[Rfam]
RNA sequence: CACACCCCCCCUGCCACCAAGGAUCGUCGGGCACGUACCUGCCCGUGGAAGGAAUGUUUC
Dot-bracket structure: .........(((.(((...........((((((......))))))))).)))........
RNA: msiK RNA